[Rfam]
RNA sequence: UGCCACAAACCCGUAGAUCCGAACUUGUGCUCAUAUCCCACACAAGCUUGUAUCUAUAGGUCUGUGGCUG
Numbered sequence: 001u002g003c004c005a006c007a008a009a010c011c012c013g014u015a016g017a018u019c020c021g022a023a024c025u026u027g028u029g030c031u032c033a034u035a036u037c038c039c040a041c042a043c044a045a046g047c048u049u050g051u052a053u054c055u056a057u058a059g060g061u062c063u064g065u066g067g068c069u070g
Stems, first nucleotide, its partner, number of pairs: 002068006010060002015055004020050003024046006